[Rfam]
RNA: Transposase-1 RNA
RNA sequence: CAGGAGCCGGUCAAUGUCAUUACCCCUGAAUUGGGAUAUGAGAAUACCGGUGCAGA
Numbered sequence: 001c002a003g004g005a006g007c008c009g010g011u012c013a014a015u016g017u018c019a020u021u022a023c024c025c026c027u028g029a030a031u032u033g034g035g036a037u038a039u040g041a042g043a044a045u046a047c048c049g050g051u052g053c054a055g056a
Base pairs, nucleotide, nucleotide: 006051007050008049009048010047011046017041018040019039020038024035025034026033